[Rfam]
RNA sequence: AAGCUCGUGGUUCGUUGACCAUCCCACGUAAAAAAACUAGGAGGAG
Numbered sequence: 001a002a003g004c005u006c007g008u009g010g011u012u013c014g015u016u017g018a019c020c021a022u023c024c025c026a027c028g029u030a031a032a033a034a035a036a037c038u039a040g041g042a043g044g045a046g
Base pairs, nucleotide, nucleotide: 006028007027008026009025010024015039
PreQ1 (pre queuosine) riboswitch aptamer: a 46-nucleotide RNA from Jeotgalibaca dankookensis. Its family is annotated with queuosine biosynthetic process in the Gene Ontology. About the family: This family is a bacterial riboswitch that binds to the metabolite preQ1, an intermediate in the biosynthesis of the modified nucleoside queuosine from GTP. One example of this riboswitch is located in the leader of the Bacillus subtilis ykvJKLM (queCDEF) operon which encodes four genes necessary for queuosine production.